The family of this 378-nucleotide sequence from Rhodothalassium salexigens is "Alphaproteobacteria transfer-messenger RNA". The family's RNA type in Rfam is non-coding RNA gene. From the family's description: Bacterial tmRNA, also known as 10Sa RNA or SsrA, is named for its dual tRNA and mRNA-like properties. Its role is to liberate the mRNA from a stalled ribosome. Taxonomically the source falls in Rhodothalassium salexigens (Bacteria, Pseudomonadati, Rhodothalassiales, Rhodothalassiaceae). The base pairs follow the family's consensus structure, which is taken from published work. The match comes from Rfam's covariance-model search (242 bits). Rfam links the family to the GO term RNA catabolic process.
RNA sequence: CCCCUUCAAAUCCAGGCCCUUGUGGUCUAUAUCCAUAGAUGCCGGCGACGGUCGGCUAUGGCGAUAAACGGCUCGUCGAAUAGGUUACGCGGACCCGGGGGCAGUGCCCGGCGCCUCCACCACCAGCGUUUGGACCGCCGGCAACGGCGCGGGCGAACGAUGCUGAUGGGGGCGAACCAGGAUCGACGCGGACUGAAGGACGUGACCCUUCGCCCGGGAUGGUACCGCCGUUAUCGGGCCAUAUAGCAAGUGCGAACGACAAUGACGUCGAGGUCGCUAUUGCCGCGUAAGCGGUAAGAGUGAUCGCACUCUUCAAUUCCUAGCCCCUCGACAGGGUUAGGUGGGGUCCGGGGGCACCUAGCAACAGAAGCCCCCAUC
Dot-bracket structure: ........................................(((((......)))))...(((((.....((..(((........((..(((...(((((.......)))))(((((((.................................................)))))))............))).)).......)))...))..)))))[[[..(((..((.]]].....)).)))......................................................................................................[[[[..((((((]]]]..........))))))...
Numbered sequence: 001c002c003c004c005u006u007c008a009a010a011u012c013c014a015g016g017c018c019c020u021u022g023u024g025g026u027c028u029a030u031a032u033c034c035a036u037a038g039a040u041g042c043c044g045g046c047g048a049c050g051g052u053c054g055g056c057u058a059u060g061g062c063g064a065u066a067a068a069c070g071g072c073u074c075g076u077c078g079a080a081u082a083g084g085u086u087a088c089g090c091g092g093a094c095c096c097g098g099g100g101g102c103a104g105u106g107c108c109c110g111g112c113g114c115c116u117c118c119a120c121c122a123c124c125a126g127c128g129u130u131u132g133g134a135c136c137g138c139c140g141g142c143a144a145c146g147g148c149g150c151g152g153g154c155g156a157a158c159g160a161u162g163c164u165g166a167u168g169g170g171g172g173c174g175a176a177c178c179a180g181g182a183u184c185g186a187c188g189c190g191g192a193c194u195g196a197a198g199g200a201c202g203u204g205a206c207c208c209u210u211c212g213c214c215c216g217g218g219a220u221g222g223u224a225c226c227g228c229c230g231u232u233a234u235c236g237g238g239c240c241a242u243a244u245a246g247c248a249a250g251u252g253c254g255a256a257c258g259a260c261a262a263u264g265a266c267g268u269c270g271a272g273g274u275c276g277c278u279a280u281u282g283c284c285g286c287g288u289a290a291g292c293g294g295u296a297a298g299a300g301u302g303a304u305c306g307c308a309c310u311c312u313u314c315a316a317u318u319c320c321u322a323g324c325c326c327c328u329c330g331a332c333a334g335g336g337u338u339a340g341g342u343g344g345g346g347u348c349c350g351g352g353g354g355c356a357c358c359u360a361g362c363a364a365c366a367g368a369a370g371c372c373c374c375c376a377u378c
Stems, first nucleotide, its partner, number of pairs: 041056005060214005070207002074202003085192002089189003095111005112174007215230003220241003225237002344359004350375006